[Rfam]
RNA sequence: ACAGUAUGGGGGCCAUAGAAGGAACAUUCACGUCGCAGCCCCUGUCAGGUAUCUGUUUACCUGCGAAUCCUUCU
Numbered sequence: 001a002c003a004g005u006a007u008g009g010g011g012g013c014c015a016u017a018g019a020a021g022g023a024a025c026a027u028u029c030a031c032g033u034c035g036c037a038g039c040c041c042c043u044g045u046c047a048g049g050u051a052u053c054u055g056u057u058u059a060c061c062u063g064c065g066a067a068u069c070c071u072u073c074u
Stems, first nucleotide, its partner, number of pairs: 009042005017074007025035001046063006
The family of this 74-nucleotide RNA from Laticauda laticaudata is "Mammalian CPEB3 ribozyme".
The organism belongs to Laticauda, within Eukaryota.
The match comes from Rfam's covariance-model search (64 bits).